[Rfam]
RNA sequence: GUAUGAAGAUGAUGAAAGUUAUGAAUGGGUGAUGAUCAAUUUCAUGUGAUCAAAAAAACAUCUAUUCGCUACGUUCUUUCUGAUUCAUAC
Numbered sequence: 001g002u003a004u005g006a007a008g009a010u011g012a013u014g015a016a017a018g019u020u021a022u023g024a025a026u027g028g029g030u031g032a033u034g035a036u037c038a039a040u041u042u043c044a045u046g047u048g049a050u051c052a053a054a055a056a057a058a059c060a061u062c063u064a065u066u067c068g069c070u071a072c073g074u075u076c077u078u079u080c081u082g083a084u085u086c087a088u089a090c
Stems, first nucleotide, its partner, number of pairs: 004087004
The record is a 90-nucleotide sequence from Turnera subulata, which matches "Small nucleolar RNA R32/R81/Z41" in Rfam.
On this family, see Barneche et al., J Mol Biol 2001: "Identification of 66 box C/D snoRNAs in Arabidopsis thaliana: extensive gene duplications generated multiple isoforms predicting new ribosomal RNA 2'-O-methylation sites".
The family's RNA type in Rfam is C/D-box small nucleolar RNA.
Taxonomically the source falls in Turnera (Eukaryota, Magnoliopsida, Mesangiospermae, Gunneridae).